This 48-nucleotide sequence from Orthoflavivirus japonicum belongs to the Rfam family "Flavivirus capsid hairpin cHP".
Clan: Flavivirus 5' UTR clan.
About the family: cHP is a conserved RNA hairpin structure identified within the capsid coding region of several Flavivirus genomes. These positive strand RNA genomes are translated as a single polypeptide and subsequently cleaved into constituent proteins, the first of which is the capsid protein.
It is annotated as a cis-regulatory element.
Pairs were carried over by alignment from the consensus structure, which is taken from published work.
Gene Ontology term of the family: translational initiation.
[Rfam]
RNA sequence: AUGACUAAAAAACCAGGAGGGCCCGGAAGAAACCGGGCCAUCAAUAUG
Numbered sequence: 001a002u003g004a005c006u007a008a009a010a011a012a013c014c015a016g017g018a019g020g021g022c023c024c025g026g027a028a029g030a031a032a033c034c035g036g037g038c039c040a041u042c043a044a045u046a047u048g
Stems, first nucleotide, its partner, number of pairs: 017042002020039006